[Rfam]
Source information
A member of the RNA family "Glycine riboswitch aptamer" from Caproiciproducens sp. NJN-50, 85 nucleotides long. The base pairs follow the family's consensus structure. Taxonomically the source falls in Caproiciproducens (Bacteria, Bacillati, Eubacteriales, Acutalibacteraceae).
RNA sequence: UUGAAGAUUCCGGGAGAGACCGCCCGCCGCGGCGGCGCCGAAGGGGAAUGCAAAAACUCUCAGGCAAAAAAACCGGGAUCCGACG
Numbered sequence: 001u002u003g004a005a006g007a008u009u010c011c012g013g014g015a016g017a018g019a020c021c022g023c024c025c026g027c028c029g030c031g032g033c034g035g036c037g038c039c040g041a042a043g044g045g046g047a048a049u050g051c052a053a054a055a056a057c058u059c060u061c062a063g064g065c066a067a068a069a070a071a072a073c074c075g076g077g078a079u080c081c082g083a084c085g
Base pairs, nucleotide, nucleotide: 006080007079008078009077010076011075012074013073020035021034022033023032037065038064039063040061041060044059045058046057